Background
Shown here is an 85-nucleotide RNA from Gorilla gorilla, a member of the family "mir-3927 microRNA precursor family". Its family is annotated with miRNA-mediated post-transcriptional gene silencing and RISC complex in the Gene Ontology. Taxonomically the source falls in Gorilla (Eukaryota, Euarchontoglires, Simiiformes, Homininae). The sequence is in the family's curated seed alignment.

RNA sequence: GCCAGUGUGCCAAUGCCUAUCAAAUAUCUACCUGCCAUGUUUGUCAUAGGACAGGUAGAUAUUUGAUAGGCAUUGGCACAUUGGG
Numbered sequence: 001g002c003c004a005g006u007g008u009g010c011c012a013a014u015g016c017c018u019a020u021c022a023a024a025u026a027u028c029u030a031c032c033u034g035c036c037a038u039g040u041u042u043g044u045c046a047u048a049g050g051a052c053a054g055g056u057a058g059a060u061a062u063u064u065g066a067u068a069g070g071c072a073u074u075g076g077c078a079c080a081u082u083g084g085g
Base pairs, nucleotide, nucleotide: 002084003083004082005081006080007079008078009077010076011075012074013073014072015071016070017069018068019067020066021065022064023063024062025061026060027059028058029057030056031055032054033053034052036050038048039047040046